The record is a 57-nucleotide RNA, which matches "Plastid-ndhJ 3UTR RNA" in Rfam. It is annotated as a cis-regulatory element. On this family, see Richter et al., Plant Commun 2023: "Retrograde signaling in plants: A critical review focusing on the GUN pathway and beyond". Plastid ndhJ is a non-coding RNA (ncRNA) present in plastids. The sequence is in the family's curated seed alignment.
[Rfam]
RNA sequence: UGCCGAACCAUGUAUUGUGCACAUCACUUAGAUGGGUUCCAGAAAGUCACAUAGGAA
Numbered sequence: 001u002g003c004c005g006a007a008c009c010a011u012g013u014a015u016u017g018u019g020c021a022c023a024u025c026a027c028u029u030a031g032a033u034g035g036g037u038u039c040c041a042g043a044a045a046g047u048c049a050c051a052u053a054g055g056a057a
Stems, first nucleotide, its partner, number of pairs: 019037002022034004